[Rfam]
A member of the RNA family "Ma3 gene ribosomal frameshift signal" from Prolemur simus, 63 nucleotides long. The organism belongs to Prolemur, within Eukaryota. A search with the family's covariance model found it, with a score of 49 bits.

RNA sequence: GGGAGAGGAGGACAGGGCUGGGGACAUGAGCCGCCCCAAGUCCUCCUCAGCCAAACAGGCUCA
Numbered sequence: 001g002g003g004a005g006a007g008g009a010g011g012a013c014a015g016g017g018c019u020g021g022g023g024a025c026a027u028g029a030g031c032c033g034c035c036c037c038a039a040g041u042c043c044u045c046c047u048c049a050g051c052c053a054a055a056c057a058g059g060c061u062c063a
Base pairs, nucleotide, nucleotide: 014044015043016042017041018040019039021037022036023035028062029061030060031059032058